The family of this 141-nucleotide RNA sequence from Vombatus ursinus is "Small nucleolar RNA SNORA63".
RNA sequence: AUGCAGGAACUAGUUACAACAUAGCUAUGAAGUGCUGUGUUGUCGUUCCCCCUGCUUAAAUUAAAAUGUUUUUUUUUUUUACUAUCCCUGUCUGUUUUGUUUUAUAUGCCAUAGCAGCUAGGGACGCUUGAUCUCAAACAU
Dot-bracket structure: ..(((((........((((((((((........)))))))))).......)))))...............................((((.((((..................)))).))))...................
Rfam's curators write: E3 belongs to the H/ACA class of snoRNAs and is involved in the processing of eukaryotic pre-rRNA and has regions of complementarity to 18S rRNA. E3 is encoded in introns in the gene for protein synthesis initiation factor 4AII. The base pairs follow the family's consensus structure, which was predicted with PFOLD. A search with the family's covariance model found it, with a score of 114 bits. On this family, see Mishra and Eliceiri, Proc Natl Acad Sci U S A 1997: "Three small nucleolar RNAs that are involved in ribosomal RNA precursor processing".